[Rfam]
A member of the RNA family "Nuclear RNase P" from Acaulospora morrowiae, 297 nucleotides long.
A reference for the family is Frank and Pace (1998), "Ribonuclease P: unity and diversity in a tRNA processing ribozyme", Annu Rev Biochem.
Gene Ontology terms of the family: tRNA processing, ribonuclease P complex and ribonuclease P activity.
RNA sequence: CGAACGGAAAGCUUGCGUUAGGGGAAAACAUACGGACUGUGAUUCUCUCACAGUUUAUUAAAAAACCCUUGGGAAGGUCUGAGAAAAACCAAAUUGUCUCUUGCGGGGACGCUCAUGAAAGUGAGUAGUGAACAACCAGAAACGUCAUCUUCCUGAUUCCUAAAUAUGAGGUCUUCGGACUGAUUGAUAUGGGGUCAUGGAUUAUUUAAACGUGGUUCACUGGUGGUAGCUCUAUGAAGUGCAAUACGCAAGACAUUACACCGUAAUGCAACUCAAUUCAGACUACUCUUCCGUUCG
Numbered sequence: 001c002g003a004a005c006g007g008a009a010a011g012c013u014u015g016c017g018u019u020a021g022g023g024g025a026a027a028a029c030a031u032a033c034g035g036a037c038u039g040u041g042a043u044u045c046u047c048u049c050a051c052a053g054u055u056u057a058u059u060a061a062a063a064a065a066c067c068c069u070u071g072g073g074a075a076g077g078u079c080u081g082a083g084a085a086a087a088a089c090c091a092a093a094u095u096g097u098c099u100c101u102u103g104c105g106g107g108g109a110c111g112c113u114c115a116u117g118a119a120a121g122u123g124a125g126u127a128g129u130g131a132a133c134a135a136c137c138a139g140a141a142a143c144g145u146c147a148u149c150u151u152c153c154u155g156a157u158u159c160c161u162a163a164a165u166a167u168g169a170g171g172u173c174u175u176c177g178g179a180c181u182g183a184u185u186g187a188u189a190u191g192g193g194g195u196c197a198u199g200g201a202u203u204a205u206u207u208a209a210a211c212g213u214g215g216u217u218c219a220c221u222g223g224u225g226g227u228a229g230c231u232c233u234a235u236g237a238a239g240u241g242c243a244a245u246a247c248g249c250a251a252g253a254c255a256u257u258a259c260a261c262c263g264u265a266a267u268g269c270a271a272c273u274c275a276a277u278u279c280a281g282a283c284u285a286c287u288c289u290u291c292c293g294u295u296c297g
Stems, first nucleotide, its partner, number of pairs: 001297004007291003012252007020070005035055008079281005088224004096110005111126006128220006147203001254268006